[Rfam]
Notes:
A member of the RNA family "Small nucleolar RNA Z39" from Sphenodon punctatus, 62 nucleotides long.
RNA sequence: GCACAAAUGAUGUGAACACAACAGUAUGAAACACAAUGAUACUGUAAACGCUUUCUGAGGUG
Numbered sequence: 001g002c003a004c005a006a007a008u009g010a011u012g013u014g015a016a017c018a019c020a021a022c023a024g025u026a027u028g029a030a031a032c033a034c035a036a037u038g039a040u041a042c043u044g045u046a047a048a049c050g051c052u053u054u055c056u057g058a059g060g061u062g
Stems, first nucleotide, its partner, number of pairs: 002062003012054001015052001017050001022044006

The family has 5 seed sequences and 935 matches in Rfam 15.1. On this family, see Chen et al., Nucleic Acids Res 2003: "The high diversity of snoRNAs in plants: identification and comparative study of 120 snoRNA genes from Oryza sativa".